RNA sequence: UCUCAUAAAUGAAUAAAUAAAAUCUUAAAAAAAAAAGACUGGCUUAGGUGAACCCACUGGGGCUGGCUGGGGAAAAGGAGGAGGCUUGCUCCAGAAGGAACUGUCUGAGGGAU
Dot-bracket structure: ((((........................................................................................................)))).
Numbered sequence: 001u002c003u004c005a006u007a008a009a010u011g012a013a014u015a016a017a018u019a020a021a022a023u024c025u026u027a028a029a030a031a032a033a034a035a036a037g038a039c040u041g042g043c044u045u046a047g048g049u050g051a052a053c054c055c056a057c058u059g060g061g062g063c064u065g066g067c068u069g070g071g072g073a074a075a076a077g078g079a080g081g082a083g084g085c086u087u088g089c090u091c092c093a094g095a096a097g098g099a100a101c102u103g104u105c106u107g108a109g110g111g112a113u
Stems, first nucleotide, its partner, number of pairs: 001112004
Small nucleolar RNA SNORD22: a 113-nucleotide RNA from Canis lupus. The family has 49 seed sequences and 1,081 matches in Rfam 15.1. A search with the family's covariance model found it, with a score of 69 bits. On this family, see Tycowski et al., Nature 1996: "A mammalian gene with introns instead of exons generating stable RNA products". It is annotated as a C/D-box small nucleolar RNA.